Description: Purine riboswitch aptamer: a 101-nucleotide sequence from Amphibacillus marinus.
RNA sequence: AAAUAAAUGAAUAGAUCCGCAUGUAUAAGCUUAUGGAUGGGCAUAAGCGUCUCUACCGGAUGACCGUAAAUCAUUGGACUACAUGUACAUAAGCUGAAGGU
Numbered sequence: 001a002a003a004u005a006a007a008u009g010a011a012u013a014g015a016u017c018c019g020c021a022u023g024u025a026u027a028a029g030c031u032u033a034u035g036g037a038u039g040g041g042c043a044u045a046a047g048c049g050u051c052u053c054u055a056c057c058g059g060a061u062g063a064c065c066g067u068a069a070a071u072c073a074u075u076g077g078a079c080u081a082c083a084u085g086u087a088c089a090u091a092a093g094c095u096g097a098a099g100g101u
Stems, first nucleotide, its partner, number of pairs: 019086007029048007057077001059075005